The record is a 35-nucleotide RNA sequence, which matches "DUF805b RNA" in Rfam.
The family's RNA type in Rfam is cis-regulatory element.

RNA sequence: AUGGAGAAUGCCGAAAAGCCAUAAAUGAGUAGGCA
Numbered sequence: 001a002u003g004g005a006g007a008a009u010g011c012c013g014a015a016a017a018g019c020c021a022u023a024a025a026u027g028a029g030u031a032g033g034c035a
Stems, first nucleotide, its partner, number of pairs: 002021003010034003
Dot-bracket structure: .(((.....[[[......)))..........]]].